[Rfam]
The record is a 68-nucleotide RNA sequence from Pelagibius litoralis, which matches "int-alpA RNA" in Rfam.
It is annotated as a small RNA.

RNA sequence: GUGGCGGCUAGGGUAGCUCCCGAAAGCCUGGAAAUCCUAGCCGGGUUGCCGUCACACCAAAACUAGGA
Number, nucleotide and partner (000 for none) at each position: 001g055002u054003g053004g052005c051006g050007g049008c048009u000010a000011g021012g020013g019014u000015a000016g000017c000018u000019c013020c012021c011022g000023a000024a000025a000026g000027c045028c044029u043030g042031g041032a000033a000034a000035u068036c067037c066038u065039a064040g000041c031042c030043g029044g028045g027046u000047u000048g008049c007050c006051g005052u004053c003054a002055c001056a000057c000058c000059a000060a000061a000062a000063c000064u039065a038066g037067g036068a035